[Rfam]
RNA sequence: GAAACCAACCUGAAAUGUAGCGUUUAUCGCUGCGUUCUCUUAAUGAGAUAGGGUUGGUUUUCUGU
Numbered sequence: 001g002a003a004a005c006c007a008a009c010c011u012g013a014a015a016u017g018u019a020g021c022g023u024u025u026a027u028c029g030c031u032g033c034g035u036u037c038u039c040u041u042a043a044u045g046a047g048a049u050a051g052g053g054u055u056g057g058u059u060u061u062c063u064g065u
Base pairs, nucleotide, nucleotide: 001061002060003059004058005057006056007055008054009053010052011051016034017033018032019031020030021029022028036048037047038046039045
Shown here is a 65-nucleotide RNA sequence, a member of the family "DUF3800-IX RNA". Rfam classes the family as a small RNA. Pairs were carried over by alignment from the consensus structure, which is taken from published work. About the family: Actinobacteria, Firmicutes (1 example), Nitrospirae, Proteobacteria, Verrucomicrobia (1 example).